[Rfam]
RNA sequence: AGUGUCAAUGAUGUGCUUUUACCUACAUUGGUCGAUGCUCCCUGAGAGAAACUUAGAGACUGAGACACU
Number, nucleotide and partner (000 for none) at each position: 001a069002g000003u067004g066005u065006c064007a000008a000009u000010g000011a000012u000013g000014u000015g000016c000017u000018u000019u000020u000021a000022c000023c000024u000025a000026c000027a000028u000029u000030g000031g000032u000033c000034g000035a000036u000037g000038c000039u000040c000041c000042c000043u000044g000045a000046g000047a000048g000049a000050a000051a000052c000053u000054u000055a000056g000057a000058g000059a000060c000061u000062g000063a000064g006065a005066c004067a003068c000069u001
RNA: Small nucleolar RNA SNORD34